Shown here is a 134-nucleotide RNA sequence from Mycobacterium leprae, a member of the family "Group II catalytic intron D1-D4-4".
RNA sequence: UUGCCGGUGUAAGUCCGGUCCGGGUAGUCGUCAGGAGGCCUGGUAGCAGACUGGUGACUUGGUCUGGAAAAGGACCGGUCGAAGCCCCGUGUCGAAAGCCUUUUACUAGGGGGACUGAGUGGUCAGUAGCAUGA
Numbered sequence: 001u002u003g004c005c006g007g008u009g010u011a012a013g014u015c016c017g018g019u020c021c022g023g024g025u026a027g028u029c030g031u032c033a034g035g036a037g038g039c040c041u042g043g044u045a046g047c048a049g050a051c052u053g054g055u056g057a058c059u060u061g062g063u064c065u066g067g068a069a070a071a072g073g074a075c076c077g078g079u080c081g082a083a084g085c086c087c088c089g090u091g092u093c094g095a096a097a098g099c100c101u102u103u104u105a106c107u108a109g110g111g112g113g114a115c116u117g118a119g120u121g122g123u124c125a126g127u128a129g130c131a132u133g134a
Base pairs, nucleotide, nucleotide: 020043021042022041023040024039050090051089053087054086055081056080057079058078059077064072065071099111100110101109102108114127115126